[Rfam]
RNA sequence: GCUGGUGUAAAUGAUGACUCCACUUUUUUCCCCAUCAGAUCGACAAUGGUGAUCUUUAAGAAUAUUUGCCAGUUAAUUCCUGAUACACCAGC
Number, nucleotide and partner (000 for none) at each position: 001g092002c091003u090004g089005g088006u087007g086008u085009a084010a000011a000012u000013g000014a000015u000016g000017a000018c000019u000020c000021c000022a000023c000024u000025u000026u000027u000028u000029u000030c000031c000032c000033c000034a000035u000036c000037a000038g000039a000040u000041c000042g000043a000044c000045a000046a000047u000048g000049g000050u000051g000052a000053u000054c000055u000056u000057u000058a000059a000060g000061a000062a000063u000064a000065u000066u000067u000068g000069c000070c000071a000072g000073u000074u000075a000076a000077u000078u000079c000080c000081u000082g000083a000084u009085a008086c007087a006088c005089c004090a003091g002092c001